Overview:
A member of the RNA family "Saccharopolyspora sRNA 350" from Saccharothrix tamanrassetensis, 508 nucleotides long. It is annotated as an antisense RNA.
RNA sequence: UUGACGCUGAACUCCCACUCGGCCUCCUGGCCGGUGAGCACCUCGUCGCCGAAGUGGUCGCCGUCGGCGAGCGUGUCCAGCACGGUCUGGUCGCCGUACUCGCCCUGGCCGACCUUGUUCACCUUGCCGUGCGCGACGAGGUGGACCUCCUCGGCGGGCCGGCCCUGCUGCACCAGCACGUCGCCGGGGGCGAACUCGCGCUGCUCGAACCGGUCGGCGAGGGCGGCCAGCACCUCGUCGUCCGGGAAGUCGCGCAGCGCGGGCAGCUCCCGCAGCUCCUGCGGGAUGACCCGGAUGUCGGCGCCGGUGCUGGUGAAGGUCACCCGGCCGUCGCCCACCGCGUAGGUGAGCCGGCGGUUGACCCGGUAGGUGCCCGCCUGGGUCUGCACCCAGGGCAGCUUGCGCAGCAGCCACCUGGGGGAGAUGCCCUGCAUCUGCGGGACGGACUUGGUCGUGGUCGCCAGGUUCCGCGCGCUCGCGGUGCUCAGGCUCUGCCGCCGCUGCUCGG
Dot-bracket structure: .....(.((.(..(.(..(.((..((((......(.((((((..(.((((((.((..(.(((((((((......(.(.((.(((((......))))).)).))....))))......(((.((...(.(((.(((..(.(..((....(((((((.(...((..........))..).....))))))).....))).)..))).)..)).)...)).))).))))).)..)).((((((((........((.(.(((..((......))....)))).))...))))))...))..)))))).))))))).)..).))..).)).).(((........)))........(.(((((..((((.....))).)))))).)))..).)).)(((((((.(((.(...(.......)..)..))).))))))).....((.(..((((((((((.......)))))).))))..))).((.(((...(.(......).)..)))...)).